[Rfam]
RNA sequence: UGACUGCGAUGAAGCGGGAGGUUGCCGACACACCCGGCCGCUUUGCCAUGGCGGAUGUGUGGGAAAUUUCCGUGGAGAAUGUCUAGAAAAUAGGCGA
Numbered sequence: 001u002g003a004c005u006g007c008g009a010u011g012a013a014g015c016g017g018g019a020g021g022u023u024g025c026c027g028a029c030a031c032a033c034c035c036g037g038c039c040g041c042u043u044u045g046c047c048a049u050g051g052c053g054g055a056u057g058u059g060u061g062g063g064a065a066a067u068u069u070c071c072g073u074g075g076a077g078a079a080u081g082u083c084u085a086g087a088a089a090a091u092a093g094g095c096g097a
Base pairs, nucleotide, nucleotide: 014073015072016071018070019069020068021067025062026061027060080096081095082094083093085091
Description:
The family of this 97-nucleotide RNA sequence from Ureibacillus manganicus is "S10-Clostridia ribosomal protein leader". The organism belongs to Ureibacillus manganicus, within Bacteria. It scores 40 bits against the family's covariance model. By type it is a cis-regulatory leader.